mir-252 microRNA precursor family: a 72-nucleotide sequence from Angiostrongylus costaricensis. The family's consensus secondary structure was predicted with RNAalifold. Its family is annotated with RISC complex and miRNA-mediated post-transcriptional gene silencing in the Gene Ontology. It scores 67 bits against the family's covariance model.
RNA sequence: UACAAGUGCUAAGUAGUGGUGCCGCAGGUAACCCUUGCAUGAUUACCUGCUGCCUACUGCUUAACAUUUUUA
Numbered sequence: 001u002a003c004a005a006g007u008g009c010u011a012a013g014u015a016g017u018g019g020u021g022c023c024g025c026a027g028g029u030a031a032c033c034c035u036u037g038c039a040u041g042a043u044u045a046c047c048u049g050c051u052g053c054c055u056a057c058u059g060c061u062u063a064a065c066a067u068u069u070u071u072a
Stems, first nucleotide, its partner, number of pairs: 001072002004069004010063010024050007